[Rfam]
Shown here is a 182-nucleotide RNA sequence from Neorhizobium galegae, a member of the family "Rhizobiales sRNA Atu_L1". NCBI's taxonomy places the organism under Bacteria, Pseudomonadota, Alphaproteobacteria, Rhizobiaceae, Neorhizobium galegae bv. orientalis. The match comes from Rfam's covariance-model search (70 bits). The family's consensus secondary structure was predicted with CMfinder. A reference for the family is Wilms et al. (2012), "Deep sequencing uncovers numerous small RNAs on all four replicons of the plant pathogen Agrobacterium tumefaciens", RNA Biol. It is annotated as a small RNA.
RNA sequence: CCUGGAUCAGGACUGCACAGAUCAGCGUCUGUAUAACUGCGGUAUAGAACGACCCGGUGAUAAGAUACGCAGCCACCGCGAACACGAUCAGAGUCACUGUCAUGCUGAUAAAGACGCGUGGCGCGUACAUGAUCGUUCCUCCCGAACGUGGCUGUUCAGUUCGUGGUUUUUCAGGCUCCUCU
Dot-bracket structure: ...(((........(..(......(.(((.....................))).)............(((.(...).)))............)...)....................(.((.(.((.....)))...)).)(((((......................)))..)).)))...